[Rfam]
RNA sequence: UUUUUAUUAUUCUGUGUCAUGAUGCUUCCGUUAUUAGCCUUUUAUCGUCUUGUUUAUAUUUUUUGGGCCGGCAUGAUGCCGGCUUUUUUU
Dot-bracket structure: .............((...(((((......)))))..))............................((((((.....)))))).......